RNA sequence: GCCUCAUCCCCGGGGAGCCGCUUGGCUGAGAGGGAGGGCUCGCAUCCUCCGACCCGUCGAACCUGAUGCCGUUGAUACGGCCGUAGGGAGGGAAGACGGGCCAUCC
Numbered sequence: 001g002c003c004u005c006a007u008c009c010c011c012g013g014g015g016a017g018c019c020g021c022u023u024g025g026c027u028g029a030g031a032g033g034g035a036g037g038g039c040u041c042g043c044a045u046c047c048u049c050c051g052a053c054c055c056g057u058c059g060a061a062c063c064u065g066a067u068g069c070c071g072u073u074g075a076u077a078c079g080g081c082c083g084u085a086g087g088g089a090g091g092g093a094a095g096a097c098g099g100g101c102c103a104u105c106c
Base pairs, nucleotide, nucleotide: 007093008092009091010090011056012055013054014053017026018025019024033050034049035048036047037046062087063086064085065084068081069080070079071078

The family of this 106-nucleotide RNA from Sphingomonas rhizophila is "TPP riboswitch aptamer (THI element)". The family's consensus secondary structure is taken from published work. The organism belongs to Sphingomonas, within Bacteria.